[Rfam]
RNA sequence: GGCUCAAGUGAUGAGAGAAAAACUGCAACAUUAUGAUGGAAGUUAAGCUCCUGUGAUUCCUAAGUAUUUAAGUCUCUGUACC
Dot-bracket structure: ((.(((...............................((.((.....)).))........................)).)))

The record is an 82-nucleotide RNA from Oryza punctata, which matches "Small nucleolar RNA Z199" in Rfam.
Rfam 15.1 lists 953 matches to the family in 222 species.
snoZ199 is a C/D box small nucleolar RNA, which acts as a methylation guide RNA for sites on 18S and 25S rRNA. Rice snoZ199 is reported to be homologous to Arabidopsis snoR13.
It scores 81 bits against the family's covariance model.
For this family Rfam cites "The high diversity of snoRNAs in plants: identification and comparative study of 120 snoRNA genes from Oryza sativa" (Chen et al., Nucleic Acids Res, 2003).
It is annotated as a C/D-box small nucleolar RNA.
Its family is annotated with RNA processing and nucleolus in the Gene Ontology.